[Rfam]
This 62-nucleotide RNA sequence from Paradevosia tibetensis belongs to the Rfam family "Fluoride riboswitch aptamer (crcB RNA motif)". A search with the family's covariance model found it, with a score of 42 bits. Taxonomically the source falls in Paradevosia (Bacteria, Pseudomonadati, Hyphomicrobiales, Devosiaceae).
RNA sequence: GCGGGCGAUGGGAAUGGGGCUUCCCGAUAAUCGCCACGGUGGCUGAUAGCUCCUGCUGGGCU
Numbered sequence: 001g002c003g004g005g006c007g008a009u010g011g012g013a014a015u016g017g018g019g020c021u022u023c024c025c026g027a028u029a030a031u032c033g034c035c036a037c038g039g040u041g042g043c044u045g046a047u048a049g050c051u052c053c054u055g056c057u058g059g060g061c062u
Base pairs, nucleotide, nucleotide: 010025011024012023013022016053017052018051019050020049021048033043034042035041